[Rfam]
RNA sequence: AGAAUAUAAGAACCCGACUCUUAACUUUUAACUGAAAAAGUUAAGAGUCGGCUCUUAAAUCUCUUAUUUAAAAUCCGACUCUUAGCAUUUUCAGUUAAAAAUUACGAAUCGGGUUCUUAUAUUCC
Numbered sequence: 001a002g003a004a005u006a007u008a009a010g011a012a013c014c015c016g017a018c019u020c021u022u023a024a025c026u027u028u029u030a031a032c033u034g035a036a037a038a039a040g041u042u043a044a045g046a047g048u049c050g051g052c053u054c055u056u057a058a059a060u061c062u063c064u065u066a067u068u069u070a071a072a073a074u075c076c077g078a079c080u081c082u083u084a085g086c087a088u089u090u091u092c093a094g095u096u097a098a099a100a101a102u103u104a105c106g107a108a109u110c111g112g113g114u115u116c117u118u119a120u121a122u123u124c125c
Base pairs, nucleotide, nucleotide: 002124003123004122005121006120007119008118009117010116011115012114013113014112015111016110017109019107020106022104023103024102026100027099028098029097030096031095032094033093034092035091036090037089038088041085042084043083044082045081046080047079
MIR9563 microRNA precursor family: a 125-nucleotide RNA from Brassica cretica. NCBI's taxonomy places the organism under Eukaryota, Viridiplantae, Embryophyta, Brassicales, Brassica.